[Rfam]
RNA sequence: AUGCUUUGGUAAUUGCUACAUGUAUUUGCAUGUAGAGGAAAGUCCAUGCUCGCACAGGCUGCGAUGCUUGUAGUGUUCGUGCUUGAUGAAUUCAUAAAUCUUGGGAGUUGUCUUGACAACUUACGGCAGGGAACAGAGCUAAGUCAACACUGAUAUGCUCUUAUUACCUUUAAAGUGCCACAGUGACGUAGUCAAAGUGGAAACAUUUUGAGUGGAACGCGGUAAACCCCACGAGCGAGCAACCCAAAUUACGGUAGGGGCAUCUUGGAUUAGGGAACUGAACCGAAACAAGGGCUAUCUUUAUGAUAGCAGAUAGAUGAUUACCACUAAGGUACGAGGAUGACCACCGCUUGUAGUACUUUAGGACAGAACAUGGCUUAUAAAG
Numbered sequence: 001a002u003g004c005u006u007u008g009g010u011a012a013u014u015g016c017u018a019c020a021u022g023u024a025u026u027u028g029c030a031u032g033u034a035g036a037g038g039a040a041a042g043u044c045c046a047u048g049c050u051c052g053c054a055c056a057g058g059c060u061g062c063g064a065u066g067c068u069u070g071u072a073g074u075g076u077u078c079g080u081g082c083u084u085g086a087u088g089a090a091u092u093c094a095u096a097a098a099u100c101u102u103g104g105g106a107g108u109u110g111u112c113u114u115g116a117c118a119a120c121u122u123a124c125g126g127c128a129g130g131g132a133a134c135a136g137a138g139c140u141a142a143g144u145c146a147a148c149a150c151u152g153a154u155a156u157g158c159u160c161u162u163a164u165u166a167c168c169u170u171u172a173a174a175g176u177g178c179c180a181c182a183g184u185g186a187c188g189u190a191g192u193c194a195a196a197g198u199g200g201a202a203a204c205a206u207u208u209u210g211a212g213u214g215g216a217a218c219g220c221g222g223u224a225a226a227c228c229c230c231a232c233g234a235g236c237g238a239g240c241a242a243c244c245c246a247a248a249u250u251a252c253g254g255u256a257g258g259g260g261c262a263u264c265u266u267g268g269a270u271u272a273g274g275g276a277a278c279u280g281a282a283c284c285g286a287a288a289c290a291a292g293g294g295c296u297a298u299c300u301u302u303a304u305g306a307u308a309g310c311a312g313a314u315a316g317a318u319g320a321u322u323a324c325c326a327c328u329a330a331g332g333u334a335c336g337a338g339g340a341u342g343a344c345c346a347c348c349g350c351u352u353g354u355a356g357u358a359c360u361u362u363a364g365g366a367c368a369g370a371a372c373a374u375g376g377c378u379u380a381u382a383a384a385g
Stems, first nucleotide, its partner, number of pairs: 004385003008325007016035006040379003044376005049239005054071006077234005082103001085100003104124001105122006125229002128169003136160004143154003175227002177223003192211008243259003263293005294310006327364009

Rfam assigns this 385-nucleotide RNA from Amphibacillus marinus to the family "Bacterial RNase P class B".
The family is grouped with related families in Rfam's "RNaseP clan".
The family's RNA type in Rfam is ribozyme.
It scores 321 bits against the family's covariance model.
About the family: Ribonuclease P (RNase P) is a ubiquitous endoribonuclease, found in archaea, bacteria and eukarya as well as chloroplasts and mitochondria. Its best characterised activity is the generation of mature 5'-ends of tRNAs by cleaving the 5'-leader elements of precursor-tRNAs.